[Rfam]
RNA sequence: UGCAAGUGAUGUUGUUCUCACGAUGGUCUUACAAGCCUUCAUGGCUUUGAAGAAUUUGCCUAAAGGCAACACUAAUGCAGUACA
Numbered sequence: 001u002g003c004a005a006g007u008g009a010u011g012u013u014g015u016u017c018u019c020a021c022g023a024u025g026g027u028c029u030u031a032c033a034a035g036c037c038u039u040c041a042u043g044g045c046u047u048u049g050a051a052g053a054a055u056u057u058g059c060c061u062a063a064a065g066g067c068a069a070c071a072c073u074a075a076u077g078c079a080g081u082a083c084a
Base pairs, nucleotide, nucleotide: 001079002078003077004076
Overview:
This 84-nucleotide RNA from Salmo trutta belongs to the Rfam family "Small nucleolar RNA SNORD35". NCBI's taxonomy places the organism under Eukaryota, Eumetazoa, Actinopteri, Neopterygii, Salmo. The family has 8 seed sequences and 1,842 matches in Rfam 15.1. It is annotated as a C/D-box small nucleolar RNA. A reference for the family is Nicoloso et al. (1996), "Intron-encoded, antisense small nucleolar RNAs: the characterization of nine novel species points to their direct role as guides for the 2'-O-ribose methylation of rRNAs", J Mol Biol. From the family's description: U35 is a C/D box snoRNA located in intron 6 of ribosomal protein L13A and intron 3 of ribosomal protein S11 in humans and at homologous positions in mouse and chicken ribosomal protein genes. U35 guides the methylation of 2'-O-ribose sites in 28S rRNA. Pairs were carried over by alignment from the consensus structure, which was predicted with PFOLD.